Shown here is a 98-nucleotide sequence from Bacillus sp. MRMR6, a member of the family "Guanidine-I riboswitch aptamer". Lineage of the source: Bacteria > Bacillota > Bacilli > Bacillaceae > Bacillus. This family represents a conserved RNA structure found upstream of the ykkC and yxkD genes in Bacillus subtilis and related genes in other bacteria. The function of this family is unclear although it has been suggested that it may function to switch on efflux pumps and detoxification systems in response to harmful environmental molecules.
RNA sequence: AGAAAUGUUUUCUAGGGUUCCGCAACGUUAACGUUGGUCUGGUCCGAGAGAAAACUCACAGCUUUGCUGUGUCACGGAAGGAUAAAAGCCUGGGAGAU
Numbered sequence: 001a002g003a004a005a006u007g008u009u010u011u012c013u014a015g016g017g018u019u020c021c022g023c024a025a026c027g028u029u030a031a032c033g034u035u036g037g038u039c040u041g042g043u044c045c046g047a048g049a050g051a052a053a054a055c056u057c058a059c060a061g062c063u064u065u066g067c068u069g070u071g072u073c074a075c076g077g078a079a080g081g082a083u084a085a086a087a088g089c090c091u092g093g094g095a096g097a098u
Base pairs, nucleotide, nucleotide: 007055008054009053010052011051012050015045016044020042021041022039023036024035025034026033027032057071058070059069060068061067073093075096079091080090081089